This 328-nucleotide part of an RNA from Silurus meridionalis belongs to the Rfam family "Eukaryotic large subunit ribosomal RNA". Taxonomically the source falls in Silurus (Eukaryota, Opisthokonta, Craniata, Clupeocephala).
RNA sequence: GAGUCCAACGCGCGCGCGAGUCAGAGGGCACGACGCGAAACCCCACGGCGCAAUGAAAGUGAAGGCUCGGCUCCACGCCGGCCGAGGUGGGAUCCGUGCGCCCCCCUUUGCGUGGGCGCGCGGCGCACCACCGGCCCGCCUCUACCGCCCCGUCGGUGAGGUGGAGCAAGAGCGCGCGCGAUGGUACCCGAAAGAUGGUGAACUAUGCCCGGGCAGGGCGAAGCCAGAGGAAACUCUGGUGGAGGCCCGCAGCGGUCCUGACGUGCAAAUCGGUCGUCCGACCUGGGUAUAGGGGCGAAAGACUAAUCGAACCAUCUAGUAGCUGGUU
Numbered sequence: 001g002a003g004u005c006c007a008a009c010g011c012g013c014g015c016g017c018g019a020g021u022c023a024g025a026g027g028g029c030a031c032g033a034c035g036c037g038a039a040a041c042c043c044c045a046c047g048g049c050g051c052a053a054u055g056a057a058a059g060u061g062a063a064g065g066c067u068c069g070g071c072u073c074c075a076c077g078c079c080g081g082c083c084g085a086g087g088u089g090g091g092a093u094c095c096g097u098g099c100g101c102c103c104c105c106c107u108u109u110g111c112g113u114g115g116g117c118g119c120g121c122g123g124c125g126c127a128c129c130a131c132c133g134g135c136c137c138g139c140c141u142c143u144a145c146c147g148c149c150c151c152g153u154c155g156g157u158g159a160g161g162u163g164g165a166g167c168a169a170g171a172g173c174g175c176g177c178g179c180g181a182u183g184g185u186a187c188c189c190g191a192a193a194g195a196u197g198g199u200g201a202a203c204u205a206u207g208c209c210c211g212g213g214c215a216g217g218g219c220g221a222a223g224c225c226a227g228a229g230g231a232a233a234c235u236c237u238g239g240u241g242g243a244g245g246c247c248c249g250c251a252g253c254g255g256u257c258c259u260g261a262c263g264u265g266c267a268a269a270u271c272g273g274u275c276g277u278c279c280g281a282c283c284u285g286g287g288u289a290u291a292g293g294g295g296c297g298a299a300a301g302a303c304u305a306a307u308c309g310a311a312c313c314a315u316c317u318a319g320u321a322g323c324u325g326g327u328u
Stems, first nucleotide, its partner, number of pairs: 005184003009180009020049003026043003053060002086132005094123010134167002136164006145155001187326002190323001194316006203292011214280001216248004223240007252277004257273002260271002294304002